Shown here is a 131-nucleotide sequence from Microcebus murinus, a member of the family "Small Cajal body specific RNA 8". Rfam describes the family as follows. scaRNAs are a specific class of small nuclear RNAs which localise to the Cajal bodies and guide the modification of RNA polymerase II transcribed spliceosomal RNAs U1, U2, U4, U5 and U12. U92 belong to the H/ACA box class of guide RNAs as it has the predicted hairpin-hinge-hairpin-tail structure, conserved H/ACA-box motifs and is found associated with GAR1. The family has 22 seed sequences and 955 matches in Rfam 15.1. The family's consensus secondary structure is taken from published work. Rfam links the family to the GO terms nucleolus, RNA processing and Cajal body. The match comes from Rfam's covariance-model search (117 bits).

[Rfam]
RNA sequence: UGUGAGGCUGACACACAAAUUGGGCUGAAGUACUGCUCUACUUGUCACCAUACUUCCCUAGAAUAAACUGCCUUUUAAUGACUGAGAUGAAUUACGUGAAAUCAUACUGGACAGAUAUAGGGCAGGUUUUU
Numbered sequence: 001u002g003u004g005a006g007g008c009u010g011a012c013a014c015a016c017a018a019a020u021u022g023g024g025c026u027g028a029a030g031u032a033c034u035g036c037u038c039u040a041c042u043u044g045u046c047a048c049c050a051u052a053c054u055u056c057c058c059u060a061g062a063a064u065a066a067a068c069u070g071c072c073u074u075u076u077a078a079u080g081a082c083u084g085a086g087a088u089g090a091a092u093u094a095c096g097u098g099a100a101a102u103c104a105u106a107c108u109g110g111a112c113a114g115a116u117a118u119a120g121g122g123c124a125g126g127u128u129u130u131u
Stems, first nucleotide, its partner, number of pairs: 002058001004056004015045004022038004068125007082110003087105004